RNA sequence: GCAAAAACUUUGACGGAGAAGAGUAAACAGAAAAACCCACAGAGAGAGGAAUCUGCCAAAUUGGUAGCUGUGAGAUUCUUCGGGAUAUGAUCUGUUGAAUGUCACUCCAGAGUCGCUCCCGCCAAAUUCAAACAAACUUGAUUAGUAGUUGGAGCCGUUUACCUACGUUACAGGUUCAAGUGAGUAAGAGUGUGCAAAUUUACACAUACACUUUUGCUAACAAAGGUGGUACCGCGAACUAAUCCUUUCGUCCUUUGA
Number, nucleotide and partner (000 for none) at each position: 001g000002c000003a000004a000005a000006a000007a113008c112009u000010u000011u000012g000013a000014c000015g108016g107017a106018g105019a000020a000021g000022a000023g000024u000025a000026a096027a095028c094029a093030g092031a091032a000033a000034a000035a000036c000037c084038c083039a000040c000041a000042g000043a000044g000045a000046g000047a000048g079049g078050a077051a076052u075053c074054u000055g000056c000057c000058a000059a000060a000061u000062u000063g000064g000065u000066a000067g000068c000069u000070g000071u000072g000073a000074g053075a052076u051077u050078c049079u048080u000081c000082g000083g038084g037085a000086u000087a000088u000089g000090a000091u031092c030093u029094g028095u027096u026097g000098a000099a000100u000101g000102u000103c000104a000105c018106u017107c016108c015109a000110g000111a000112g008113u007114c000115g000116c154117u153118c152119c151120c000121g149122c148123c000124a000125a000126a000127u000128u000129c000130a000131a000132a000133c000134a000135a000136a000137c000138u000139u000140g000141a000142u000143u000144a000145g000146u000147a000148g122149u121150u000151g119152g118153a117154g116155c000156c167157g166158u165159u000160u000161a000162c000163c000164u000165a158166c157167g156168u000169u000170a000171c000172a000173g000174g000175u000176u000177c000178a000179a000180g000181u000182g000183a218184g217185u216186a215187a214188g213189a212190g211191u210192g209193u208194g207195c000196a000197a000198a000199u000200u000201u000202a000203c000204a000205c000206a000207u194208a193209c192210a191211c190212u189213u188214u187215u186216g185217c184218u183219a000220a000221c000222a000223a255224a254225g253226g252227u000228g000229g000230u000231a000232c000233c000234g251235c250236g249237a248238a247239c000240u000241a000242a000243u000244c000245c000246u000247u238248u237249c236250g235251u234252c226253c225254u224255u223256u000257g000258a000

Shown here is a 258-nucleotide RNA sequence from Shimazuella alba, a member of the family "T-box leader". Rfam's curators write: Uncharged tRNA acts as the effector for transcription antitermination of genes in the T-box leader family. Taxonomically the source falls in Shimazuella (Bacteria, Bacillota, Caryophanales, Thermoactinomycetaceae). It scores 114 bits against the family's covariance model.